A member of the RNA family "MIR1435 microRNA precursor family" from Panicum virgatum, 198 nucleotides long. Taxonomically the source falls in Panicum sect. Hiantes (Eukaryota, Viridiplantae, Mesangiospermae, Petrosaviidae). It scores 101 bits against the family's covariance model. Gene Ontology terms of the family: RISC complex and miRNA-mediated post-transcriptional gene silencing.
RNA sequence: UAGGUUUGUUGUAAGUCAAACUUGACUAACUUGAUCAAGUCUACAGAAAAAUAUAGCAACAACUAUACUGUCCAACAUAUGCAUUAUCAACAUAUAUUUCAUAGUGAAUUCAAUGAAACAAAUUGGGUAAUGUAAAUGUUAUUGUUUCUUUCUAUAAAUUUGGUCAAGUUUGCUAAGUUUGACUUAGGACAAACCUAA
Numbered sequence: 001u002a003g004g005u006u007u008g009u010u011g012u013a014a015g016u017c018a019a020a021c022u023u024g025a026c027u028a029a030c031u032u033g034a035u036c037a038a039g040u041c042u043a044c045a046g047a048a049a050a051a052u053a054u055a056g057c058a059a060c061a062a063c064u065a066u067a068c069u070g071u072c073c074a075a076c077a078u079a080u081g082c083a084u085u086a087u088c089a090a091c092a093u094a095u096a097u098u099u100c101a102u103a104g105u106g107a108a109u110u111c112a113a114u115g116a117a118a119c120a121a122a123u124u125g126g127g128u129a130a131u132g133u134a135a136a137u138g139u140u141a142u143u144g145u146u147u148c149u150u151u152c153u154a155u156a157a158a159u160u161u162g163g164u165c166a167a168g169u170u171u172g173c174u175a176a177g178u179u180u181g182a183c184u185u186a187g188g189a190c191a192a193a194c195c196u197a198a
Base pairs, nucleotide, nucleotide: 005193006192007191008190009189012186013185014184015183016182017181018180019179020178021177022176023175024174026172031168032167045153046152047151048150049149051147054144055143056142058140059139060138061137064134065133066132067131071127072126073125074124075123